[Rfam]
RNA sequence: AUAAUGUUAUGGUUAUUGUUUCGUAUAAUCUUGGGAAUAGGGCCCGGGAGUUUCUACGAAGUCACCGUAAAUGACUUUACUACGAAAGCGGCAGUCGUGUUC
Numbered sequence: 001a002u003a004a005u006g007u008u009a010u011g012g013u014u015a016u017u018g019u020u021u022c023g024u025a026u027a028a029u030c031u032u033g034g035g036a037a038u039a040g041g042g043c044c045c046g047g048g049a050g051u052u053u054c055u056a057c058g059a060a061g062u063c064a065c066c067g068u069a070a071a072u073g074a075c076u077u078u079a080c081u082a083c084g085a086a087a088g089c090g091g092c093a094g095u096c097g098u099g100u101u102c
Stems, first nucleotide, its partner, number of pairs: 019087007029049007058078007
A member of the RNA family "Purine riboswitch aptamer" from Scopulibacillus darangshiensis, 102 nucleotides long. Rfam describes the family as follows. Riboswitches are metabolite binding domains within certain messenger RNAs that serve as precision sensors for their corresponding targets. Allosteric rearrangement of mRNA structure is mediated by ligand binding, and this results in modulation of gene expression. A class of riboswitches that selectively recognises guanine and becomes saturated at concentrations as low as 5 nM. In Bacillus subtilis, this mRNA motif is located on at least five separate transcriptional units that together encode 17 genes that are mostly involved in purine transport and purine nucleotide biosynthesis. The family's consensus secondary structure is taken from published work.